[Rfam]
RNA sequence: AAAUGACAUCAAGAGUUGGGCUGCAUGCCCAACGCCAACCUGCUCCCGGGCAAGGUGGCGUCCCGCUCCGGGAGAUGUGGCCGAUCCGGCAAACCUCGGGUUCCAG
Numbered sequence: 001a002a003a004u005g006a007c008a009u010c011a012a013g014a015g016u017u018g019g020g021c022u023g024c025a026u027g028c029c030c031a032a033c034g035c036c037a038a039c040c041u042g043c044u045c046c047c048g049g050g051c052a053a054g055g056u057g058g059c060g061u062c063c064c065g066c067u068c069c070g071g072g073a074g075a076u077g078u079g080g081c082c083g084a085u086c087c088g089g090c091a092a093a094c095c096u097c098g099g100g101u102u103c104c105a106g
Base pairs, nucleotide, nucleotide: 006078007077008076009075010074015033016032017031018030019029020028034059035058036057039055040054041053042051043050044049080090081089082088083087
Annotation
The family of this 106-nucleotide sequence from Bryocella elongata is "SAM-I/IV (S-adenosyl methionine) riboswitch aptamer". The match comes from Rfam's covariance-model search (52 bits). The literature on the family includes a 2008 paper in RNA by Weinberg et al., "The aptamer core of SAM-IV riboswitches mimics the ligand-binding site of SAM-I riboswitches". Pairs were carried over by alignment from the consensus structure, which is taken from published work.